[Rfam]
RNA sequence: ACAGCGUAAGCCGAAAAGCUACAAAACAGAGUAGGCU
Dot-bracket structure: ..(((....[[[.....))).............]]].

This 37-nucleotide sequence belongs to the Rfam family "DUF805b RNA". The family is grouped with related families in Rfam's "DUF805 clan". By type it is a cis-regulatory element. The sequence is in the family's curated seed alignment.